A member of the RNA family "U11 spliceosomal RNA" from Molossus molossus, 133 nucleotides long. The match comes from Rfam's covariance-model search (87 bits). It is annotated as a spliceosomal small nuclear RNA. The base pairs follow the family's consensus structure, which is taken from published work.
[Rfam]
RNA sequence: GAAAAGGGCUCUGUGGUGAGCGGCACACAUAGGGCAGCUUGAUUGCUCUGAGUGCGGAAUCAACAGCAAGAGAUUUCCGACGCAUACUUUUUUGGUACUUGGGCAGCUGGUGAUCAUUGGUCCUGGCGCCCAC
Numbered sequence: 001g002a003a004a005a006g007g008g009c010u011c012u013g014u015g016g017u018g019a020g021c022g023g024c025a026c027a028c029a030u031a032g033g034g035c036a037g038c039u040u041g042a043u044u045g046c047u048c049u050g051a052g053u054g055c056g057g058a059a060u061c062a063a064c065a066g067c068a069a070g071a072g073a074u075u076u077c078c079g080a081c082g083c084a085u086a087c088u089u090u091u092u093u094g095g096u097a098c099u100u101g102g103g104c105a106g107c108u109g110g111u112g113a114u115c116a117u118u119g120g121u122c123c124u125g126g127c128g129c130c131c132a133c
Stems, first nucleotide, its partner, number of pairs: 008083002010080002012025003016021001026054003030050008056077006101131004106127005112122004
Dot-bracket structure: .......(((((((.(....).)))(((.((((((((.....)))))))).))).((((((..........)))))).)).)).................((((.(((((.((((...)))))))))))))..